[Rfam]
Description
Shown here is a 188-nucleotide sequence from Streptomyces filamentosus, a member of the family "c-di-AMP riboswitch aptamer (ydaO/yuaA leader)". About the family: This family represents a conserved RNA structure found upstream of the ydaO and yuaA genes in Bacillus subtilis and related genes in other bacteria. The ydaO/yuaA element is thought to act as a genetic 'off' switch for the ydaO and yuaA genes in its native state. It is believed that the element may be triggered during osmotic shock leading to activation of ydaO, a predicted amino acid transporter gene, and members of the yuaA-yubG operon which code for KtrA and KtrB K+ transporters.
RNA sequence: UCGAGCGGAUCGCCGAAUCCUGCCACCGCCCGAAGGACCUCCCAUUUCACCCGACGGCAGGAGCGGGGGACCCACCACACCGCCGGCCCGGUCAUCCGGAACGGCUCGGGGUGAAGCCGCGUGCGCGCGGCCGGACACCUCCCGUCCGAACCCGACAGCUCACCUCGCAGGCGCCGGAGAGGAAACCG
Numbered sequence: 001u002c003g004a005g006c007g008g009a010u011c012g013c014c015g016a017a018u019c020c021u022g023c024c025a026c027c028g029c030c031c032g033a034a035g036g037a038c039c040u041c042c043c044a045u046u047u048c049a050c051c052c053g054a055c056g057g058c059a060g061g062a063g064c065g066g067g068g069g070a071c072c073c074a075c076c077a078c079a080c081c082g083c084c085g086g087c088c089c090g091g092u093c094a095u096c097c098g099g100a101a102c103g104g105c106u107c108g109g110g111g112u113g114a115a116g117c118c119g120c121g122u123g124c125g126c127g128c129g130g131c132c133g134g135a136c137a138c139c140u141c142c143c144g145u146c147c148g149a150a151c152c153c154g155a156c157a158g159c160u161c162a163c164c165u166c167g168c169a170g171g172c173g174c175c176g177g178a179g180a181g182g183a184a185a186c187c188g
Stems, first nucleotide, its partner, number of pairs: 011173004018062007063168006073108001109153003117130004133147004